[Rfam]
RNA sequence: AUUAAAUUGAAUAAAAACCGUCGUAUAAUUUUGGGGAUAAGGCCCAUAAGUUUCUACCAGACUACCGUAAAUGGUCUGACUACGCUGGUGAAUUGCAAUAGC
Dot-bracket structure: .................(((.((((...((.((((.......)))).))........(((((((.......)))))))..)))).)))..............
Numbered sequence: 001a002u003u004a005a006a007u008u009g010a011a012u013a014a015a016a017a018c019c020g021u022c023g024u025a026u027a028a029u030u031u032u033g034g035g036g037a038u039a040a041g042g043c044c045c046a047u048a049a050g051u052u053u054c055u056a057c058c059a060g061a062c063u064a065c066c067g068u069a070a071a072u073g074g075u076c077u078g079a080c081u082a083c084g085c086u087g088g089u090g091a092a093u094u095g096c097a098a099u100a101g102c
Stems, first nucleotide, its partner, number of pairs: 018088003022084004029049002032046004058078007
Description
This 102-nucleotide RNA sequence from Terrihalobacillus insolitus belongs to the Rfam family "Purine riboswitch aptamer". A search with the family's covariance model found it, with a score of 87 bits. NCBI's taxonomy places the organism under Bacteria, Bacilli, Caryophanales, Bacillaceae, Terrihalobacillus. The family's consensus secondary structure is taken from published work.